[Rfam]
The record is a 63-nucleotide RNA from Pseudoduganella ginsengisoli, which matches "Betaproteobacteria toxic small RNA" in Rfam.

RNA sequence: UGUCUCCUCUAUUCUCCUCCUCGGAAAUAGAUUCAGCCCGCUUCUCAUAGCGGGCUUUUUUUU
Numbered sequence: 001u002g003u004c005u006c007c008u009c010u011a012u013u014c015u016c017c018u019c020c021u022c023g024g025a026a027a028u029a030g031a032u033u034c035a036g037c038c039c040g041c042u043u044c045u046c047a048u049a050g051c052g053g054g055c056u057u058u059u060u061u062u063u
Base pairs, nucleotide, nucleotide: 008031009030010029011028012027013025014024035056036055037054038053039052040051041050042049
Pairs were carried over by alignment from the consensus structure, which was predicted with WAR. The match comes from Rfam's covariance-model search (64 bits). About the family: Overexpression in amino aid rich medium attenuates growth, suggesting role in repressing amino acid intake and metabolism.